Small nucleolar RNA SNORA8: a 128-nucleotide RNA sequence from Neotoma lepida. Taxonomically the source falls in Neotoma (Eukaryota, Chordata, Mammalia, Boreoeutheria). Rfam classes the family as an H/ACA-box small nucleolar RNA. Rfam's curators write: ACA8 is a member of the H/ACA class of snoRNA that guide the sites of modification of uridines to pseudouridines.

RNA sequence: UGUACUGCAUGGGUAGCUGUGCUCAUUCUGGUGCGUUCAAAGGACAGUGUAAUAGAAAUUCAAUAUCUAGCAUUGUAGAUUUUCUUGGCUUUGUGCUUGUUAAGCCUGGUAUUUCUGUUGAUGCAGUU
Dot-bracket structure: .((((((.........((((((.((...).).))))....))..))))))..((((((((((......(((((...................))))).........))).)))))))...........
Numbered sequence: 001u002g003u004a005c006u007g008c009a010u011g012g013g014u015a016g017c018u019g020u021g022c023u024c025a026u027u028c029u030g031g032u033g034c035g036u037u038c039a040a041a042g043g044a045c046a047g048u049g050u051a052a053u054a055g056a057a058a059u060u061c062a063a064u065a066u067c068u069a070g071c072a073u074u075g076u077a078g079a080u081u082u083u084c085u086u087g088g089c090u091u092u093g094u095g096c097u098u099g100u101u102a103a104g105c106c107u108g109g110u111a112u113u114u115c116u117g118u119u120g121a122u123g124c125a126g127u128u
Stems, first nucleotide, its partner, number of pairs: 002050006017042002019036004024031001025029001053117007060109003069097005